[Rfam]
RNA: RNase MRP
Organism: Ricinus communis
RNA sequence: UCGUCAUGAGACGGAGUGACUGGGUGGGACAUCGUCACCCAGGAAAGUCCCCGGGCCCACUUCUGCAGAGAUGCAGCCCCGGAAACGGGAGAACUUCGAGUCGGAGGGCCGCUUGCCUAGUGCGAGGGGCUGAGACGCGUGUGGAGCCUCCUUGGACUCUCCGCCGAAGUUAUUUGGCCGUUGACUCACAGUUAUUCACUCGGUCCCACUCUUAACAGUGAGACUAACAGAACGGGGCUUACGAUCUCGUGGUG
Numbered sequence: 001u002c003g004u005c006a007u008g009a010g011a012c013g014g015a016g017u018g019a020c021u022g023g024g025u026g027g028g029a030c031a032u033c034g035u036c037a038c039c040c041a042g043g044a045a046a047g048u049c050c051c052c053g054g055g056c057c058c059a060c061u062u063c064u065g066c067a068g069a070g071a072u073g074c075a076g077c078c079c080c081g082g083a084a085a086c087g088g089g090a091g092a093a094c095u096u097c098g099a100g101u102c103g104g105a106g107g108g109c110c111g112c113u114u115g116c117c118u119a120g121u122g123c124g125a126g127g128g129g130c131u132g133a134g135a136c137g138c139g140u141g142u143g144g145a146g147c148c149u150c151c152u153u154g155g156a157c158u159c160u161c162c163g164c165c166g167a168a169g170u171u172a173u174u175u176g177g178c179c180g181u182u183g184a185c186u187c188a189c190a191g192u193u194a195u196u197c198a199c200u201c202g203g204u205c206c207c208a209c210u211c212u213u214a215a216c217a218g219u220g221a222g223a224c225u226a227a228c229a230g231a232a233c234g235g236g237g238c239u240u241a242c243g244a245u246c247u248c249g250u251g252g253u254g
Base pairs, nucleotide, nucleotide: 002254003253004252005251006250007249008248009247010246011245014201015200016199017198018197019196021041022040023039024038025037026036027035045240046239047238049237050236051235052234064075065074066073067072078089079088080087081086093170094169095168102163103162104161105160106159107158117155118154119153127149128148129147130146137142203224204223205222207220208219209218210217